Rfam assigns this 98-nucleotide RNA from Diceros bicornis to the family "mir-544 microRNA precursor family". Taxonomically the source falls in Diceros bicornis (Eukaryota, Opisthokonta, Sarcopterygii, Rhinocerotidae). Pairs were carried over by alignment from the consensus structure, which was predicted with RNAalifold. It scores 70 bits against the family's covariance model.

[Rfam]
RNA sequence: AUCACCUAGGUUUCUCGUUAAAACGUAGAUUCUGAUUCAGCAACUGUGGGGUGGGAUCCAAGACUCUGCAUUUCUAUCAAGCACCCACGUGAUGCUUC
Number, nucleotide and partner (000 for none) at each position: 001a000002u000003c091004a090005c089006c000007u000008a000009g085010g084011u083012u000013u000014c081015u080016c000017g078018u000019u076020a075021a073022a072023a071024c000025g069026u068027a067028g066029a065030u000031u063032c062033u061034g000035a000036u000037u000038c000039a000040g000041c000042a000043a000044c000045u000046g000047u000048g000049g000050g000051g000052u000053g000054g000055g000056a000057u000058c000059c000060a000061a033062g032063a031064c000065u029066c028067u027068g026069c025070a000071u023072u022073u021074c000075u020076a019077u000078c017079a000080a015081g014082c000083a011084c010085c009086c000087a000088c000089g005090u004091g003092a000093u000094g000095c000096u000097u000098c000